[Rfam]
RNA sequence: AUCACCUAGGGGGCUUGUUAAAAUACAAAUUCCAUUUCAGUGGAGUAGGAAUGAGGUUGAAGAUUUUGCAUUUCUAGCAAGUUCCUAGGGGAUGCCAG
Number, nucleotide and partner (000 for none) at each position: 001a000002u000003c091004a000005c089006c000007u000008a000009g085010g084011g083012g000013g000014c081015u080016u079017g078018u077019u076020a075021a073022a072023a071024u000025a000026c068027a067028a066029a065030u000031u063032c062033c000034a000035u000036u000037u000038c000039a000040g000041u000042g000043g000044a000045g000046u000047a000048g000049g000050a000051a000052u000053g000054a000055g000056g000057u000058u000059g000060a000061a000062g032063a031064u000065u029066u028067u027068g026069c000070a000071u023072u022073u021074c000075u020076a019077g018078c017079a016080a015081g014082u000083u011084c010085c009086u000087a000088g000089g005090g000091g003092a000093u000094g000095c000096c000097a000098g000